[Rfam]
RNA sequence: GUGCCCUCUUCCAGCUGGCGCGGUGCGCUAAGAUGGCUGACACAGAAGGCUAGGGUGCGUCUCCAUGUAACCCAGAGAAGAGACUGCACCCUCGCCUUCAGAGCCUGUCUGGAGUCACAGCU
Numbered sequence: 001g002u003g004c005c006c007u008c009u010u011c012c013a014g015c016u017g018g019c020g021c022g023g024u025g026c027g028c029u030a031a032g033a034u035g036g037c038u039g040a041c042a043c044a045g046a047a048g049g050c051u052a053g054g055g056u057g058c059g060u061c062u063c064c065a066u067g068u069a070a071c072c073c074a075g076a077g078a079a080g081a082g083a084c085u086g087c088a089c090c091c092u093c094g095c096c097u098u099c100a101g102a103g104c105c106u107g108u109c110u111g112g113a114g115u116c117a118c119a120g121c122u
Base pairs, nucleotide, nucleotide: 002052003051005049006048007047009045010044014041016039017038019036021032059116061114062113063112064111065110072101075098076097077096080093081092082091
A member of the RNA family "Small nucleolar RNA SNORA26" from Oryctolagus cuniculus, 122 nucleotides long. The family is grouped with related families in Rfam's "SNORA27 clan". The base pairs follow the family's consensus structure, which was predicted with RNAalifold. Rfam 15.1 lists 1,943 matches to the family in 640 species. Its family is annotated with RNA processing and nucleolus in the Gene Ontology. Rfam describes the family as follows. The snoRNA HBI-6 belong to the H/ACA family of snoRNAs, guiding the pseudouridylation of position U4522 if the 28S rRNA. HBI-6 is the human orthologue of mouse MBI-6 snoRNA. Taxonomically the source falls in Oryctolagus (Eukaryota, Opisthokonta, Deuterostomia, Gnathostomata).